Shown here is a 96-nucleotide RNA from Thermomonospora umbrina, a member of the family "Glycine riboswitch aptamer".

RNA sequence: CAACCCUGUGCGGGAGAGAUCCCGCGCCGCCAGCGCGGGGCGCCGAAGGGGCAACCCUCCCCGGAACCUCUCAGGCAAAAGGACCGCACGGGCAGG
Numbered sequence: 001c002a003a004c005c006c007u008g009u010g011c012g013g014g015a016g017a018g019a020u021c022c023c024g025c026g027c028c029g030c031c032a033g034c035g036c037g038g039g040g041c042g043c044c045g046a047a048g049g050g051g052c053a054a055c056c057c058u059c060c061c062c063g064g065a066a067c068c069u070c071u072c073a074g075g076c077a078a079a080a081g082g083a084c085c086g087c088a089c090g091g092g093c094a095g096g
Base pairs, nucleotide, nucleotide: 006091007090008089009088010087011086012085013084020040021039022038023037024036025035042076043075044074045072046071049070050069051068055064056063
Record summary: Taxonomically the source falls in Thermomonospora (Bacteria, Actinomycetota, Actinomycetes, Streptosporangiales). About the family: This family represents the bacterial glycine riboswitch. Glycine riboswitches usually consist of two metabolite-binding aptamers domains with similar structures in tandem. Gene Ontology term of the family: glycine biosynthetic process.